[Rfam]
RNA: c-di-AMP riboswitch aptamer (ydaO/yuaA leader)
Organism: Brevibacillus centrosporus
RNA sequence: GUAACCGAUUCGCUGAGUCCCAUUUUUGAAUGGGAGCGGGGGAACCAAACGUGGAGGGACUUGUCGUGCCACAUGGGGUGAAUCUUGAAGAUUUCGAGUAGGGUGACUCUUACACCCGAAUCCGUCAGCUAACUCCGUAAGCGUACCAAGAGAGGUAAC
Numbered sequence: 001g002u003a004a005c006c007g008a009u010u011c012g013c014u015g016a017g018u019c020c021c022a023u024u025u026u027u028g029a030a031u032g033g034g035a036g037c038g039g040g041g042g043a044a045c046c047a048a049a050c051g052u053g054g055a056g057g058g059a060c061u062u063g064u065c066g067u068g069c070c071a072c073a074u075g076g077g078g079u080g081a082a083u084c085u086u087g088a089a090g091a092u093u094u095c096g097a098g099u100a101g102g103g104u105g106a107c108u109c110u111u112a113c114a115c116c117c118g119a120a121u122c123c124g125u126c127a128g129c130u131a132a133c134u135c136c137g138u139a140a141g142c143g144u145a146c147c148a149a150g151a152g153a154g155g156u157a158a159c
Stems, first nucleotide, its partner, number of pairs: 011143004018035006036138006046075002076123003084098004101117004